[Rfam]
RNA sequence: AGGUCUGAUAGUCUAUCUUCCUGUGCUGUCAUAAAUCUUGGAGCAUAGUCUAUCCGGCCUGA
Numbered sequence: 001a002g003g004u005c006u007g008a009u010a011g012u013c014u015a016u017c018u019u020c021c022u023g024u025g026c027u028g029u030c031a032u033a034a035a036u037c038u039u040g041g042a043g044c045a046u047a048g049u050c051u052a053u054c055c056g057g058c059c060u061g062a
Stems, first nucleotide, its partner, number of pairs: 001060005007054005013048004018043004
Dot-bracket structure: (((((.(((((.((((.((((..................)))).)))).))))).)))))..
Shown here is a 62-nucleotide sequence from Monodelphis domestica, a member of the family "mir-7385 microRNA precursor family".
Rfam's curators put it in the seed alignment.